RNA: Aggregatibacter sRNA 22
RNA sequence: AAGGGGUCACAAAAAGUAUUACUUUUUGAACGUUGGCUUUGCCAACGGCAGUGAAACUGUGAACAAUCCUUGCAAGGAUUAUGAAUAAUUUUUAAUUAU
Numbered sequence: 001a002a003g004g005g006g007u008c009a010c011a012a013a014a015a016g017u018a019u020u021a022c023u024u025u026u027u028g029a030a031c032g033u034u035g036g037c038u039u040u041g042c043c044a045a046c047g048g049c050a051g052u053g054a055a056a057c058u059g060u061g062a063a064c065a066a067u068c069c070u071u072g073c074a075a076g077g078a079u080u081a082u083g084a085a086u087a088a089u090u091u092u093u094a095a096u097u098a099u
Stems, first nucleotide, its partner, number of pairs: 010028008031047007048060005063082001065080006085096002088093001